[Rfam]
RNA sequence: CGGGUUUACUCCUGGUUUUUACCGUUUCAUCUGGCCGAAGCCGGAUGUCGUUUUGGUGUCUGAUUCGGUAACGAAUCGGGAGCACCAUCUGCGUAGGCUUGAGGUUUAAGACUUGCGCCGCCUACGGUCUUGGAUAGCCCCCGCCAGGCAGGGACCCCAAUUUUGCUGAUGGCGCGACGGAUCGCGCCA
Dot-bracket structure: .((((((...((((........((...((((((((....)))))))).))...(((((((((((((......)))))))..))))))...(((..((((....((((((((((............))))))))))))))..)))))))...)))))).............((((((......)))))).
Numbered sequence: 001c002g003g004g005u006u007u008a009c010u011c012c013u014g015g016u017u018u019u020u021a022c023c024g025u026u027u028c029a030u031c032u033g034g035c036c037g038a039a040g041c042c043g044g045a046u047g048u049c050g051u052u053u054u055g056g057u058g059u060c061u062g063a064u065u066c067g068g069u070a071a072c073g074a075a076u077c078g079g080g081a082g083c084a085c086c087a088u089c090u091g092c093g094u095a096g097g098c099u100u101g102a103g104g105u106u107u108a109a110g111a112c113u114u115g116c117g118c119c120g121c122c123u124a125c126g127g128u129c130u131u132g133g134a135u136a137g138c139c140c141c142c143g144c145c146a147g148g149c150a151g152g153g154a155c156c157c158c159a160a161u162u163u164u165g166c167u168g169a170u171g172g173c174g175c176g177a178c179g180g181a182u183c184g185c186g187c188c189a
Stems, first nucleotide, its partner, number of pairs: 002157006011148004023050002028047008054087006060079007091144003096139004104135010171188006
A member of the RNA family "Pseudomonas sRNA P27" from Pseudomonas putida, 189 nucleotides long. The sequence is in the family's curated seed alignment.